Record summary:
A member of the RNA family "Histone 3' UTR stem-loop" from Centropus unirufus, 46 nucleotides long. Rfam's curators write: The mRNAs of metazoan histone genes lack a poly-A tail. 3' end processing occurs at a site between a highly conserved stem-loop (modelled by this family) and a purine rich region around 20 nts downstream (the histone downstream element, or HDE). The stem-loop is bound by a 31 kDa stem-loop binding protein (SLBP - also termed the histone hairpin binding protein, or HBP). Together with U7 snRNA binding of the HDE, SLBP binding nucleate s the formation of the processing complex. The base pairs follow the family's consensus structure, which is taken from published work. Rfam links the family to the GO term mRNA 3'-end processing by stem-loop binding and cleavage. Rfam classes the family as a cis-regulatory element.
[Rfam]
RNA sequence: CCAACGGCUCUUUUCAGAGCCACCCACCUUGUCACUUGGAAGAGCU
Numbered sequence: 001c002c003a004a005c006g007g008c009u010c011u012u013u014u015c016a017g018a019g020c021c022a023c024c025c026a027c028c029u030u031g032u033c034a035c036u037u038g039g040a041a042g043a044g045c046u
Stems, first nucleotide, its partner, number of pairs: 006021006